Group I catalytic intron: a 367-nucleotide RNA from Bacillus sp. FJAT-18017.
Taxonomically the source falls in Bacillus (Bacteria, Bacilli, Caryophanales, Bacillaceae).
Its family is annotated with Group I intron splicing in the Gene Ontology.
Pairs were carried over by alignment from the consensus structure, which is taken from published work.
A search with the family's covariance model found it, with a score of 102 bits.
For this family Rfam cites "Self-splicing of group I introns" (Cech, Annu Rev Biochem, 1990).

[Rfam]
RNA sequence: UGACGUUGAUUAUGCUAUAGCUGCCUAAGAGCAGUGACAAGCACAGUCGUCCUAGCUGGUAACGGCUAGCGAUUAUUAUCGGGUGAAUUGCUGGAAACCCCUUAGAGCUUUUCUUACCACAACGUAGUUGGAAACAACAAGCGUGAUGGUUUGAAAAAAGAAAAGAUAUGGGCAAUCAGCAGCCAAGCUCCUGUCUCGAAAGAGUGGAGAAGGUUCAACGACUAGGAUAAACCAUCUAAGGCGAAAGCUAUGAUGAUGAAAUCCAUAGGUGAAACAAUGGUCAUCAGCAUUGUGAAUCCGAAGUGCCCGACCCCUACUAGAUUGCUAGAGGGUGAAGAUAUAGUCUAGUCAUUUAUGAAAAUAAAUG
Numbered sequence: 001u002g003a004c005g006u007u008g009a010u011u012a013u014g015c016u017a018u019a020g021c022u023g024c025c026u027a028a029g030a031g032c033a034g035u036g037a038c039a040a041g042c043a044c045a046g047u048c049g050u051c052c053u054a055g056c057u058g059g060u061a062a063c064g065g066c067u068a069g070c071g072a073u074u075a076u077u078a079u080c081g082g083g084u085g086a087a088u089u090g091c092u093g094g095a096a097a098c099c100c101c102u103u104a105g106a107g108c109u110u111u112u113c114u115u116a117c118c119a120c121a122a123c124g125u126a127g128u129u130g131g132a133a134a135c136a137a138c139a140a141g142c143g144u145g146a147u148g149g150u151u152u153g154a155a156a157a158a159a160g161a162a163a164a165g166a167u168a169u170g171g172g173c174a175a176u177c178a179g180c181a182g183c184c185a186a187g188c189u190c191c192u193g194u195c196u197c198g199a200a201a202g203a204g205u206g207g208a209g210a211a212g213g214u215u216c217a218a219c220g221a222c223u224a225g226g227a228u229a230a231a232c233c234a235u236c237u238a239a240g241g242c243g244a245a246a247g248c249u250a251u252g253a254u255g256a257u258g259a260a261a262u263c264c265a266u267a268g269g270u271g272a273a274a275c276a277a278u279g280g281u282c283a284u285c286a287g288c289a290u291u292g293u294g295a296a297u298c299c300g301a302a303g304u305g306c307c308c309g310a311c312c313c314c315u316a317c318u319a320g321a322u323u324g325c326u327a328g329a330g331g332g333u334g335a336a337g338a339u340a341u342a343g344u345c346u347a348g349u350c351a352u353u354u355a356u357g358a359a360a361a362u363a364a365a366u367g
Stems, first nucleotide, its partner, number of pairs: 005025001007023002010020004031038001079310004084305002089181006099172003103168001182214002189207002195202002218346001220345005313332003317328004352365005